[Rfam]
RNA sequence: CGGAUAGAGUUAACGGAAUCGGCUGCAUUCAUCCGAUCGGCUUAAUGGCUCAAUAGCGUUUGCAUUCUCGAUGAGAGCAACGUUAUCGAUAACUAUUCGGUAAUUGAUCGGUGUAUUUGCGGCUGGUAUGCGCUGAGAGUUUUGUGAUCGUAUGUUAACGGAUGUGAAGUGGACCAUUCUUUUCGGGCGUGGAACCCUUCAUAUCUUUAGGCAUAUCGAUUAUAAAAUUUUAAACGUAUCGUCUCCGCUAUUGUGCGUCGCCUUAUGUCUACUAUUGUGAUUAUUGAAUAUUCGCAUGCGAAUAUUUGUGGUCAACAAUAUUACGAUAUGAGUGAUAUGGACGCGUUGAGACGUAUAUCUCGGUGUGAACGUUGACCACCUAUCCGACCCGUCUUGAAACACGG
Number, nucleotide and partner (000 for none) at each position: 001c386002g385003g384004a383005u382006a381007g380008a000009g376010u375011u374012a373013a000014c000015g000016g000017a000018a000019u000020c125021g124022g123023c122024u121025g120026c119027a000028u000029u000030c000031a000032u000033c000034c000035g000036a000037u000038c000039g000040g000041c000042u000043u000044a000045a000046u000047g000048g000049c000050u000051c000052a000053a000054u000055a000056g000057c000058g000059u000060u000061u000062g000063c000064a000065u000066u000067c000068u000069c000070g000071a000072u000073g000074a000075g000076a000077g000078c000079a000080a000081c000082g000083u000084u000085a000086u000087c000088g000089a000090u000091a000092a000093c000094u000095a000096u000097u000098c000099g000100g000101u000102a000103a000104u000105u000106g000107a000108u000109c000110g000111g000112u000113g000114u000115a000116u000117u000118u000119g026120c025121g024122g023123c022124u021125g020126g000127u000128a000129u000130g366131c365132g364133c363134u362135g361136a360137g359138a358139g000140u000141u000142u000143u000144g000145u000146g000147a000148u000149c000150g000151u000152a000153u000154g000155u000156u000157a000158a000159c000160g000161g000162a000163u000164g000165u000166g000167a000168a000169g000170u000171g000172g000173a000174c000175c000176a000177u000178u000179c000180u000181u000182u000183u000184c000185g000186g000187g000188c000189g000190u000191g000192g000193a000194a000195c000196c000197c000198u000199u000200c000201a000202u000203a000204u000205c000206u000207u000208u000209a000210g000211g000212c000213a000214u000215a000216u000217c000218g000219a000220u000221u000222a000223u000224a000225a000226a000227a000228u000229u000230u000231u000232a000233a000234a000235c000236g000237u000238a000239u000240c000241g000242u000243c000244u000245c000246c000247g000248c000249u000250a000251u000252u000253g000254u000255g000256c000257g000258u000259c000260g000261c000262c000263u000264u000265a000266u000267g000268u000269c000270u000271a000272c000273u000274a000275u000276u000277g000278u000279g000280a000281u000282u000283a000284u000285u000286g000287a000288a000289u000290a000291u000292u000293c000294g000295c000296a000297u000298g000299c000300g000301a000302a000303u000304a000305u000306u000307u000308g000309u000310g000311g000312u000313c000314a000315a000316c000317a000318a000319u000320a000321u000322u000323a000324c000325g000326a000327u000328a000329u000330g000331a000332g000333u000334g000335a000336u000337a000338u000339g000340g000341a000342c000343g000344c000345g000346u000347u000348g000349a000350g000351a000352c000353g000354u000355a000356u000357a000358u138359c137360u136361c135362g134363g133364u132365g131366u130367g000368a000369a000370c000371g000372u000373u012374g011375a010376c009377c000378a000379c000380c007381u006382a005383u004384c003385c002386g001387a000388c000389c404390c403391g402392u401393c000394u000395u000396g000397a000398a000399a000400c000401a392402c391403g390404g389